[Rfam]
Annotation: The record is a 199-nucleotide RNA sequence from Pedococcus badiiscoriae, which matches "Actinobacteria sRNA Ms_IGR-5" in Rfam. NCBI's taxonomy places the organism under Bacteria, Bacillati, Actinomycetes, Intrasporangiaceae, Pedococcus.
RNA sequence: ACACGGAAGGGAGGUGGUCCAAGAAGUGAUUUCAUUCUGGACGCGUGAGGUGACUGCGCGCUAGCGCACCUCGACUGCUCGAGGUCCGCCAUCCGGCGCAAUCCCCAGCAGUUCACCGCAGCCCGUGGGCCGUGCAGGUCGUCCCCUGCACACGCCGAGCCGCCUUUGGCGACAAGGCAAGGCCCACGGGCUGUUCCAU
Numbered sequence: 001a002c003a004c005g006g007a008a009g010g011g012a013g014g015u016g017g018u019c020c021a022a023g024a025a026g027u028g029a030u031u032u033c034a035u036u037c038u039g040g041a042c043g044c045g046u047g048a049g050g051u052g053a054c055u056g057c058g059c060g061c062u063a064g065c066g067c068a069c070c071u072c073g074a075c076u077g078c079u080c081g082a083g084g085u086c087c088g089c090c091a092u093c094c095g096g097c098g099c100a101a102u103c104c105c106c107a108g109c110a111g112u113u114c115a116c117c118g119c120a121g122c123c124c125g126u127g128g129g130c131c132g133u134g135c136a137g138g139u140c141g142u143c144c145c146c147u148g149c150a151c152a153c154g155c156c157g158a159g160c161c162g163c164c165u166u167u168g169g170c171g172a173c174a175a176g177g178c179a180a181g182g183c184c185c186a187c188g189g190g191c192u193g194u195u196c197c198a199u
Stems, first nucleotide, its partner, number of pairs: 014057005059098004064093001065088002069084005119193013133150006
Notes:
It scores 78 bits against the family's covariance model. The literature on the family includes a 2013 paper in RNA by Li et al., "Identification of small RNAs in Mycobacterium smegmatis using heterologous Hfq".